Source information: A member of the RNA family "Ribosomal protein L20 leader" from Clostridium tepidiprofundi, 125 nucleotides long. Rfam links the family to the GO term regulation of gene expression. A search with the family's covariance model found it, with a score of 63 bits. It is annotated as a cis-regulatory leader. The source organism's lineage runs through Bacteria, Bacillati, Clostridia, Clostridium and Clostridium tepidiprofundi.
RNA sequence: CGAGGUAAGAAGAAAUUGUCGUUUCUCACCUUACAGCAAGGCUAGUAAGGUUAAAUACGCUUGGUACUUUUAUUAGUAAUAGUGUAUGUUGCGGACGGCAGUGCUGUCCGUUUUAUUUUUUAUAU
Dot-bracket structure: ..........((((((....)))))).(((..((.((...))..))..))).......................................(((((((((...)))))))))..............